[Rfam]
RNA sequence: ACAACGAAAAGGCAAAACUAUGGAAACAUAGCAGCGCAAAGCUAUAGGGGCUAAAGUGGUUAAUCCACUAUGCCAGCCAGUUGCCGAA
Numbered sequence: 001a002c003a004a005c006g007a008a009a010a011g012g013c014a015a016a017a018c019u020a021u022g023g024a025a026a027c028a029u030a031g032c033a034g035c036g037c038a039a040a041g042c043u044a045u046a047g048g049g050g051c052u053a054a055a056g057u058g059g060u061u062a063a064u065c066c067a068c069u070a071u072g073c074c075a076g077c078c079a080g081u082u083g084c085c086g087a088a
Base pairs, nucleotide, nucleotide: 012037013036018031019030020029021028022027040082041081042080043079047078048077049074050073051072056068057067058066059065

The record is an 88-nucleotide RNA sequence from Domibacillus iocasae, which matches "c-di-GMP-I riboswitch aptamer" in Rfam. NCBI's taxonomy places the organism under Bacteria, Bacillati, Bacillota, Bacilli, Domibacillus.